The family of this 87-nucleotide RNA sequence from Raphanus sativus is "mir-160 microRNA precursor family". The base pairs follow the family's consensus structure, which was predicted with PFOLD. It scores 76 bits against the family's covariance model. Taxonomically the source falls in Raphanus (Eukaryota, Viridiplantae, Streptophytina, Mesangiospermae).
RNA sequence: UCGUGCCUGGCUCCCUGUAUGCCACAAGUAAAUACCGAUCUCGUGACGAAAUCUAUGGCUAGUGGCGUACAGAGUAGUCAAGCAUGA
Number, nucleotide and partner (000 for none) at each position: 001u087002c086003g085004u084005g083006c082007c000008u080009g079010g078011c077012u076013c000014c074015c000016u071017g070018u069019a068020u067021g066022c065023c064024a063025c000026a000027a060028g059029u058030a000031a000032a000033u000034a000035c000036c000037g000038a000039u000040c000041u000042c000043g000044u000045g000046a000047c000048g000049a000050a000051a000052u000053c000054u000055a000056u000057g000058g029059c028060u027061a000062g000063u024064g023065g022066c021067g020068u019069a018070c017071a016072g000073a000074g014075u000076a012077g011078u010079c009080a008081a000082g006083c005084a004085u003086g002087a001